A member of the RNA family "Small nucleolar RNA U109" from Dasypus novemcinctus, 135 nucleotides long.
The base pairs follow the family's consensus structure, which was predicted with WAR.
Rfam links the family to the GO terms RNA processing and nucleolus.
On this family, see Gu et al., Nucleic Acids Res 2005: "A novel experimental approach for systematic identification of box H/ACA snoRNAs from eukaryotes".
Rfam classes the family as an H/ACA-box small nucleolar RNA.
Rfam's curators put it in the seed alignment.
Lineage of the source: Eukaryota > Gnathostomata > Euteleostomi > Amniota > Dasypus.
RNA sequence: UUGCAUGUGGAAAUGUCUGCUCCUCAUUCUUUUAGGAGCAGGAAUAUAGCCAUAACAUGCUACAUUAAAAUAGGAGUUCUCAGGGCUGCCAAUCUUGCAGAAGAGGUUGAGUGAUAGUAUAUUUCUCUUACAUUA
Numbered sequence: 001u002u003g004c005a006u007g008u009g010g011a012a013a014u015g016u017c018u019g020c021u022c023c024u025c026a027u028u029c030u031u032u033u034a035g036g037a038g039c040a041g042g043a044a045u046a047u048a049g050c051c052a053u054a055a056c057a058u059g060c061u062a063c064a065u066u067a068a069a070a071u072a073g074g075a076g077u078u079c080u081c082a083g084g085g086c087u088g089c090c091a092a093u094c095u096u097g098c099a100g101a102a103g104a105g106g107u108u109g110a111g112u113g114a115u116a117g118u119a120u121a122u123u124u125c126u127c128u129u130a131c132a133u134u135a
Base pairs, nucleotide, nucleotide: 003060004059005058006057007056008055016042017041018040019039020038021037022036023035073128074127075126076125085115089111090109091108092107093106094105095104096103